[Rfam]
RNA sequence: GGGCACAUGGCGCAGUUGGUAGCGCGCUUCCCUUGCAAGGAAGAGGUCAUCGGUUCGAUUCCGGUUGCGUCCA
Numbered sequence: 001g002g003g004c005a006c007a008u009g010g011c012g013c014a015g016u017u018g019g020u021a022g023c024g025c026g027c028u029u030c031c032c033u034u035g036c037a038a039g040g041a042a043g044a045g046g047u048c049a050u051c052g053g054u055u056c057g058a059u060u061c062c063g064g065u066u067g068c069g070u071c072c073a
Stems, first nucleotide, its partner, number of pairs: 001072004006067002010025004027043005049065005
Shown here is a 73-nucleotide sequence from Saccharomyces cerevisiae, a member of the family "tRNA". It is one of the family's seed sequences. Its family is annotated with triplet codon-amino acid adaptor activity in the Gene Ontology. Taxonomically the source falls in Saccharomyces (Eukaryota, Dikarya, Saccharomycetales, Saccharomycetaceae). It is annotated as a transfer RNA.